[Rfam]
RNA sequence: UAUCGGUUCAAGUCCUGAUAGGAUUCGCGCUAGCGAAGAUGCCUUGUAACCGAAUAGCUUGUCUAUAGGGGGACAUUAUG
Numbered sequence: 001u002a003u004c005g006g007u008u009c010a011a012g013u014c015c016u017g018a019u020a021g022g023a024u025u026c027g028c029g030c031u032a033g034c035g036a037a038g039a040u041g042c043c044u045u046g047u048a049a050c051c052g053a054a055u056a057g058c059u060u061g062u063c064u065a066u067a068g069g070g071g072g073a074c075a076u077u078a079u080g
Stems, first nucleotide, its partner, number of pairs: 012074005020044003024037005050069002
Description: The record is an 80-nucleotide RNA sequence from Lactobacillus psittaci, which matches "SAM-III riboswitch aptamer (SMK box)" in Rfam. The literature on the family includes a 2008 paper in Mol Cell by Wang et al., "Riboswitches that sense S-adenosylhomocysteine and activate genes involved in coenzyme recycling". Its family is annotated with methionine adenosyltransferase activity and regulation of translational initiation in the Gene Ontology.